The record is an 84-nucleotide RNA from Haemophilus influenzae, which matches "sRNA-Xcc1" in Rfam. The organism belongs to Haemophilus influenzae, within Bacteria. On this family, see Chen et al., RNA Biol 2011: "sRNA-Xcc1, an integron-encoded transposon- and plasmid-transferred trans-acting sRNA, is under the positive control of the key virulence regulators HrpG and HrpX of Xanthomonas campestris pathovar campestris". The family's RNA type in Rfam is small RNA. Pairs were carried over by alignment from the consensus structure, which was predicted with RNAalifold.
[Rfam]
RNA sequence: GACCGACAGUGCGAGGAAUAUAAUACCACAAGGGAAUAACUCCGCUGUUCAUCUUUACAGUUUUGAGCUGUCGGUCGCCCUACU
Numbered sequence: 001g002a003c004c005g006a007c008a009g010u011g012c013g014a015g016g017a018a019u020a021u022a023a024u025a026c027c028a029c030a031a032g033g034g035a036a037u038a039a040c041u042c043c044g045c046u047g048u049u050c051a052u053c054u055u056u057a058c059a060g061u062u063u064u065g066a067g068c069u070g071u072c073g074g075u076c077g078c079c080c081u082a083c084u
Base pairs, nucleotide, nucleotide: 001076002075003074004073005072006071007070008069009068013042014041015040017037026033027032044061045060046059047058048057